[Rfam]
RNA sequence: CGCAGAUGCUAAGGCUAUUAUUGAGCAGUACCAUUCUGCUUAAGUGAUGCGGAUUUUGACAGAAACCGUGUGGUAAAAGUGCGGUCCUGUUUGGUAUGUAGUACAUCGGGGGCCGUAACCUCGUUACAGUAAUAACGUCAGUGCUACGCUACACAGCGCCCAAACAGGUGCAAAAGUUUUGGGUAAACAAAAAUGGGGGAAAGCCGUCUGUGACACCACCACAGGCGGUUUUUU
Numbered sequence: 001c002g003c004a005g006a007u008g009c010u011a012a013g014g015c016u017a018u019u020a021u022u023g024a025g026c027a028g029u030a031c032c033a034u035u036c037u038g039c040u041u042a043a044g045u046g047a048u049g050c051g052g053a054u055u056u057u058g059a060c061a062g063a064a065a066c067c068g069u070g071u072g073g074u075a076a077a078a079g080u081g082c083g084g085u086c087c088u089g090u091u092u093g094g095u096a097u098g099u100a101g102u103a104c105a106u107c108g109g110g111g112g113c114c115g116u117a118a119c120c121u122c123g124u125u126a127c128a129g130u131a132a133u134a135a136c137g138u139c140a141g142u143g144c145u146a147c148g149c150u151a152c153a154c155a156g157c158g159c160c161c162a163a164a165c166a167g168g169u170g171c172a173a174a175a176g177u178u179u180u181g182g183g184u185a186a187a188c189a190a191a192a193a194u195g196g197g198g199g200a201a202a203g204c205c206g207u208c209u210g211u212g213a214c215a216c217c218a219c220c221a222c223a224g225g226c227g228g229u230u231u232u233u234u
Stems, first nucleotide, its partner, number of pairs: 001051004024040005031196005052178006065085007072220003086168008200232012
RNA: FuFi-1 RNA